[Rfam]
RNA: c-di-AMP riboswitch aptamer (ydaO/yuaA leader)
Organism: Xylanimonas cellulosilytica
RNA sequence: ACCGCACCACAGACUGACCCGAAGGCAGGGACGGGGGAACCACCACCGGGCACCGCAUGCGGUGCCCUCGGGGUGAAGCCGCGCCAGCGGCCGGGCGAACUCCCGCCCGAACCCGACAGCUCACCUCGUAGGCGACCAGGAGAGGUACA
Numbered sequence: 001a002c003c004g005c006a007c008c009a010c011a012g013a014c015u016g017a018c019c020c021g022a023a024g025g026c027a028g029g030g031a032c033g034g035g036g037g038a039a040c041c042a043c044c045a046c047c048g049g050g051c052a053c054c055g056c057a058u059g060c061g062g063u064g065c066c067c068u069c070g071g072g073g074u075g076a077a078g079c080c081g082c083g084c085c086a087g088c089g090g091c092c093g094g095g096c097g098a099a100c101u102c103c104c105g106c107c108c109g110a111a112c113c114c115g116a117c118a119g120c121u122c123a124c125c126u127c128g129u130a131g132g133c134g135a136c137c138a139g140g141a142g143a144g145g146u147a148c149a
Base pairs, nucleotide, nucleotide: 002132003131007030008029031129032128033127034126035125036124041070071114072113073112079090080089081088082087093108094107095106096105